mir-34 microRNA precursor family: a 68-nucleotide RNA sequence from Asbolus verrucosus. The source organism's lineage runs through Eukaryota, Eumetazoa, Ecdysozoa, Pterygota and Asbolus. The match comes from Rfam's covariance-model search (57 bits). Clan: mir-34 clan. A reference for the family is Lim et al. (2003), "Vertebrate microRNA genes", Science. Human mir-34a was discovered computationally and later experimentally verified. The mature sequence is excised from the 5' arm of the hairpin. Rfam links the family to the GO terms miRNA-mediated post-transcriptional gene silencing and RISC complex.
[Rfam]
RNA sequence: ACACGGUGGCAGUGUGGUUAGCUGGUUGUGUUUUUCUAUCACGACCACUAUCCAUACUACCUCCAUGA
Numbered sequence: 001a002c003a004c005g006g007u008g009g010c011a012g013u014g015u016g017g018u019u020a021g022c023u024g025g026u027u028g029u030g031u032u033u034u035u036c037u038a039u040c041a042c043g044a045c046c047a048c049u050a051u052c053c054a055u056a057c058u059a060c061c062u063c064c065a066u067g068a
Base pairs, nucleotide, nucleotide: 002067003066005064006063008061009060011058012057013056014055015054016053017052019050020049021048023047024046025045026044027043028042029041030040